Shown here is a 97-nucleotide RNA from Clostridium sp. CAG:75, a member of the family "Glycine riboswitch aptamer".
[Rfam]
RNA sequence: GAUCGACUCUCUGGAGAAUUCUGCGGUUUUGGCAGAUACCGAAGGUGCAACAAGCCUAUGGCUGGAAUCUCUCAGGUAAAAGGACAGAAAACAAAAG
Numbered sequence: 001g002a003u004c005g006a007c008u009c010u011c012u013g014g015a016g017a018a019u020u021c022u023g024c025g026g027u028u029u030u031g032g033c034a035g036a037u038a039c040c041g042a043a044g045g046u047g048c049a050a051c052a053a054g055c056c057u058a059u060g061g062c063u064g065g066a067a068u069c070u071c072u073c074a075g076g077u078a079a080a081a082g083g084a085c086a087g088a089a090a091a092c093a094a095a096a097g
Stems, first nucleotide, its partner, number of pairs: 008090001010088004020036004038077003041073002045071001047069001051064002

The source organism's lineage runs through Bacteria, Clostridia, Eubacteriales, Clostridiaceae and Clostridium.